[Rfam]
RNA: DUF805 RNA
Nucleotides: 068
Base pairs, nucleotide, nucleotide: 006023007022008021009020035051036050037049042063043062
Number, partner (000 for none) and nucleotide at each position: 001000g002000u003000a004000c005000a006023a007022u008021g009020g010000a011000g012000u013000g014000c015000a016000g017000a018000a019000a020009c021008c022007a023006u024000u025000c026000a027000a028000a029000a030000a031000a032000c033000g034000c035051g036050g037049c038000g039000a040000a041000u042063c043062u044000g045000a046000a047000a048000a049037g050036c051035c052000u053000g054000a055000c056000g057000a058000g059000u060000a061000a062043g063042g064000u065000a066000a067000a068000u